[Rfam]
Overview: Shown here is a 131-nucleotide RNA sequence from Yersinia enterocolitica, a member of the family "Histidine operon leader". The base pairs follow the family's consensus structure, which is taken from published work. Taxonomically the source falls in Yersinia enterocolitica subsp. enterocolitica (Bacteria, Pseudomonadati, Enterobacterales, Yersinia). At least 6 amino acid operons are known to be regulated by attenuation. In each a leader sequence of 150-200 bp is found upstream of the first gene in the operon. This leader sequence can assume two different secondary structures known as the terminator and the anti-terminator structure. Rfam's curators put it in the seed alignment.
RNA sequence: CCAUCAUCACCAUCAUCCUGACUAGUCUUGCAGGCCGAUGUGUGCUGGAAGACGGUUAACGAAUCUUCCAGGUGGCGGUAGAACGCAAUAGAGAAAGCCCUCGGAAGAUUAUCUUCCGAGGGCUUUUUUGU
Numbered sequence: 001c002c003a004u005c006a007u008c009a010c011c012a013u014c015a016u017c018c019u020g021a022c023u024a025g026u027c028u029u030g031c032a033g034g035c036c037g038a039u040g041u042g043u044g045c046u047g048g049a050a051g052a053c054g055g056u057u058a059a060c061g062a063a064u065c066u067u068c069c070a071g072g073u074g075g076c077g078g079u080a081g082a083a084c085g086c087a088a089u090a091g092a093g094a095a096a097g098c099c100c101u102c103g104g105a106a107g108a109u110u111a112u113c114u115u116c117c118g119a120g121g122g123c124u125u126u127u128u129u130g131u
Stems, first nucleotide, its partner, number of pairs: 008044003011040004017034004045071008092128016
Dot-bracket structure: .......(((((((..((((..........))))..)))).)))((((((((...........))))))))....................((((((((((((((((.....))))))))))))))))...